[Rfam]
RNA sequence: UGCUCUGUAUGGCAUUUCCACCCAGCAGCUUUCUCCUGAUGAGGUGUUCAACAAGCUGUGCUACAGCAGUGCAGUGUUUGGCAUCACUGGUUUUUGUUCCCCUGGGUCUGUUAAACCUGGUAUUCUUUCUGAAGCAAUC
Dot-bracket structure: .((.(.(.......((..((((.(.(((.......))).)..))))......)).).).))...((.(((.(((.....(((.(...................).)))........)))..))).))............